Annotation: Small nucleolar RNA SNORD87: an 82-nucleotide RNA sequence from Heliornis fulica. The source organism's lineage runs through Eukaryota, Deuterostomia, Archelosauria, Gruiformes and Heliornis.
RNA sequence: GCUGGCAUGAUGAUGAAUGAAGACUUUGCCGUUUACCCAUCUGACUUUUUUUGAUGAGUAUCUUUAAAUCUGAAAUGCCAGU
Numbered sequence: 001g002c003u004g005g006c007a008u009g010a011u012g013a014u015g016a017a018u019g020a021a022g023a024c025u026u027u028g029c030c031g032u033u034u035a036c037c038c039a040u041c042u043g044a045c046u047u048u049u050u051u052u053g054a055u056g057a058g059u060a061u062c063u064u065u066a067a068a069u070c071u072g073a074a075a076u077g078c079c080a081g082u
Base pairs, nucleotide, nucleotide: 001082002081003080004079005078006077007076
Dot-bracket structure: (((((((....................................................................)))))))
The literature on the family includes a 2001 paper in EMBO J by Huttenhofer et al., "RNomics: an experimental approach that identifies 201 candidates for novel, small, non-messenger RNAs in mouse". The match comes from Rfam's covariance-model search (61 bits).